[Rfam]
Nucleotides: 032
Stems, first nucleotide, its partner, number of pairs: 001018004008032007
Number, partner (000 for none) and nucleotide at each position: 001018g002017g003016u004015g005000c006000u007000u008032g009031u010030u011029a012028u013027u014026u015004c016003a017002c018001c019000u020000a021000a022000a023000u024000c025000g026014a027013a028012a029011u030010a031009a032008c